[Rfam]
RNA: mir-8834 microRNA precursor family
Organism: Canis lupus
RNA sequence: AGGAACAACAGUGGCAGCAGCCAGCUCUGGAGCCCUGCAUUCAGCUCCUGCAAUAACUAUGGAGCUCUCAGUCUACAGGGACCUGGAUGCUCCGGGGAUGG
Numbered sequence: 001a002g003g004a005a006c007a008a009c010a011g012u013g014g015c016a017g018c019a020g021c022c023a024g025c026u027c028u029g030g031a032g033c034c035c036u037g038c039a040u041u042c043a044g045c046u047c048c049u050g051c052a053a054u055a056a057c058u059a060u061g062g063a064g065c066u067c068u069c070a071g072u073c074u075a076c077a078g079g080g081a082c083c084u085g086g087a088u089g090c091u092c093c094g095g096g097g098a099u100g101g
Base pairs, nucleotide, nucleotide: 002093003092004091006089007088009085010084011083013073014072015071017069019068020067023066024065025064026063027062028061029060031058036052037051